[Rfam]
Nucleotides: 054
Stems, first nucleotide, its partner, number of pairs: 013043001014041003020036001022034004
Number, partner (000 for none) and nucleotide at each position: 001000a002000u003000g004000u005000u006000c007000c008000a009000c010000a011000u012000u013043u014041g015040u016039a017000a018000g019000u020036u021000u022034c023033u024032u025031u026000g027000g028000a029000u030000a031025a032024a033023a034022g035000c036020a037000u038000c039016u040015g041014c042000u043013a044000a045000a046000u047000g048000a049000a050000u051000g052000a053000a054000u